[Rfam]
RNA sequence: GGCUGAUCUGAGUGCAGUGGUGUUUACAACUAAUUGAUCACAACCAGUUACAGAAGAAACAGAUUUCUUUGUUUCUUCUUUACUCCCACUGCUUCACUUGACUAACCUUAA
Numbered sequence: 001g002g003c004u005g006a007u008c009u010g011a012g013u014g015c016a017g018u019g020g021u022g023u024u025u026a027c028a029a030c031u032a033a034u035u036g037a038u039c040a041c042a043a044c045c046a047g048u049u050a051c052a053g054a055a056g057a058a059a060c061a062g063a064u065u066u067c068u069u070u071g072u073u074u075c076u077u078c079u080u081u082a083c084u085c086c087c088a089c090u091g092c093u094u095c096a097c098u099u100g101a102c103u104a105a106c107c108u109u110a111a
Stems, first nucleotide, its partner, number of pairs: 001107002004104002007101002010099002014095001016090005022085001028073003032069002
RNA: Y RNA
Organism: Cebus imitator